Annotation:
Shown here is a 67-nucleotide sequence, a member of the family "DUF3800-VIII RNA". The sequence is in the family's curated seed alignment. It is annotated as a small RNA. Pairs were carried over by alignment from the consensus structure, which is taken from published work. About the family: Bacteroidetes, Cyanobacteria, Firmicutes, Planctomycetes (1 example), Proteobacteria, Tenericutes (1 example).

RNA sequence: UGCGUCCUGCGACGGUCGAAGCCCUGCGUUCCUACGCGGGGUAUUUCCGUAGGCCGGGCGGGAUGCA
Numbered sequence: 001u002g003c004g005u006c007c008u009g010c011g012a013c014g015g016u017c018g019a020a021g022c023c024c025u026g027c028g029u030u031c032c033u034a035c036g037c038g039g040g041g042u043a044u045u046u047c048c049g050u051a052g053g054c055c056g057g058g059c060g061g062g063a064u065g066c067a
Stems, first nucleotide, its partner, number of pairs: 001067010013056005021042009